[Rfam]
RNA sequence: AAAAUGGUUGGCUAGGGUUCCGGCUUGCGAAAGCGAGCGUCAGGUCCGAGAGCUGACGACCUCCAGUUGAGGUUACACGGCGGGAUAAAAGCCCGGGAGAC
Numbered sequence: 001a002a003a004a005u006g007g008u009u010g011g012c013u014a015g016g017g018u019u020c021c022g023g024c025u026u027g028c029g030a031a032a033g034c035g036a037g038c039g040u041c042a043g044g045u046c047c048g049a050g051a052g053c054u055g056a057c058g059a060c061c062u063c064c065a066g067u068u069g070a071g072g073u074u075a076c077a078c079g080g081c082g083g084g085a086u087a088a089a090a091g092c093c094c095g096g097g098a099g100a101c
Stems, first nucleotide, its partner, number of pairs: 007057006015047002020044002022041001023038006058074006076096001078099001082094003
A member of the RNA family "Guanidine-I riboswitch aptamer" from Pseudomonas sp. StFLB209, 101 nucleotides long. NCBI's taxonomy places the organism under Bacteria, Pseudomonadati, Pseudomonadales, Pseudomonadaceae, Pseudomonas. This family represents a conserved RNA structure found upstream of the ykkC and yxkD genes in Bacillus subtilis and related genes in other bacteria.